The record is a 57-nucleotide RNA from Pyrobaculum aerophilum, which matches "Pyrobaculum sRNA 204" in Rfam. The base pairs follow the family's consensus structure. Rfam describes the family as follows. Non canonical pseudouridylation guide sRNA features. Predicted to target 23S U2023 in Pyrobaculum. NCBI's taxonomy places the organism under Archaea, Thermoprotei, Thermoproteales, Pyrobaculum, Pyrobaculum aerophilum. The family's RNA type in Rfam is H/ACA-box small nucleolar RNA. Gene Ontology term of the family: RNA processing. The literature on the family includes a 2012 paper in RNA by Bernick et al., "Discovery of Pyrobaculum small RNA families with atypical pseudouridine guide RNA features".
[Rfam]
RNA sequence: GAGUGCCGCCGGAGAGCCGCGCGCCGCGGCCCCAUGAGCGGCGGUUCCCCGGCCAUA
Numbered sequence: 001g002a003g004u005g006c007c008g009c010c011g012g013a014g015a016g017c018c019g020c021g022c023g024c025c026g027c028g029g030c031c032c033c034a035u036g037a038g039c040g041g042c043g044g045u046u047c048c049c050c051g052g053c054c055a056u057a
Base pairs, nucleotide, nucleotide: 005045006044007043008042009041010040016030017029018028019027020026021025